[Rfam]
RNA sequence: CUAUAUCUACCCUGUAGAUCCGGAUUUGUGUCAGAAUCAGUGGAAAAUCACAAAUUCGCUUCUGAGGGAGUAUAUAGU
Numbered sequence: 001c002u003a004u005a006u007c008u009a010c011c012c013u014g015u016a017g018a019u020c021c022g023g024a025u026u027u028g029u030g031u032c033a034g035a036a037u038c039a040g041u042g043g044a045a046a047a048u049c050a051c052a053a054a055u056u057c058g059c060u061u062c063u064g065a066g067g068g069a070g071u072a073u074a075u076a077g078u
Stems, first nucleotide, its partner, number of pairs: 002076005010068003016063003021058010
RNA: mir-10 microRNA precursor family